[Rfam]
RNA sequence: UGCAAGUUUAAGGCCAUAGCAGAAGCGCUCAUGGCAUGUCAGAUUCUGAUGAAUCUGCAACUUCUACU
Numbered sequence: 001u002g003c004a005a006g007u008u009u010a011a012g013g014c015c016a017u018a019g020c021a022g023a024a025g026c027g028c029u030c031a032u033g034g035c036a037u038g039u040c041a042g043a044u045u046c047u048g049a050u051g052a053a054u055c056u057g058c059a060a061c062u063u064c065u066a067c068u
Base pairs, nucleotide, nucleotide: 013035014034015033018068019067021065022064023063024062025032040057041056042055043054044053045052046051
RNA: Mammalian CPEB3 ribozyme
Organism: Crocodylus porosus